[Rfam]
RNA sequence: GGGGAUCUUCGGAGCCCUAUAACUCGGGUCGCAAGCGACCCCUUUAGCUGACGGAAGACAGAGA
Numbered sequence: 001g002g003g004g005a006u007c008u009u010c011g012g013a014g015c016c017c018u019a020u021a022a023c024u025c026g027g028g029u030c031g032c033a034a035g036c037g038a039c040c041c042c043u044u045u046a047g048c049u050g051a052c053g054g055a056a057g058a059c060a061g062a063g064a
Base pairs, nucleotide, nucleotide: 001018002017003016004015006014008012026041027040028039029038030037031036
A member of the RNA family "L2-Alphaproteobacteria ribosomal protein leader" from Paragemmobacter aquarius, 64 nucleotides long. NCBI's taxonomy places the organism under Bacteria, Pseudomonadota, Alphaproteobacteria, Rhodobacterales, Paragemmobacter. For this family Rfam cites "Discovery of 20 novel ribosomal leader candidates in bacteria and archaea" (Eckert and Weinberg, BMC Microbiol, 2020). The family's RNA type in Rfam is cis-regulatory leader. The match comes from Rfam's covariance-model search (50 bits). Pairs were carried over by alignment from the consensus structure, which is taken from published work.